[Rfam]
Nucleotides: 037
Stems, first nucleotide, its partner, number of pairs: 001019002005016003
Number, partner (000 for none) and nucleotide at each position: 001019c002018u003000g004000c005016u006015u007014u008000g009000a010000g011000g012000a013000g014007a015006a016005a017000u018002g019001g020000a021000a022000u023000a024000a025000a026000a027000a028000c029000u030000u031000c032000a033000u034000g035000u036000u037000c

A member of the RNA family "Renin stability regulatory element (REN-SRE)" from Nannospalax galili, 37 nucleotides long. By type it is a cis-regulatory element. Rfam links the family to the GO terms protein binding and RNA destabilization. Rfam 15.1 lists 120 matches to the family in 115 species. Rfam's curators write: This family represents a cis-acting element in the 3'-UTR of the renin (REN) gene called renin stability regulatory element (REN-SRE) which acts to regulate renin production. REN-SRE is thought to destabilise the mRNA, promoting degradation of the sequence.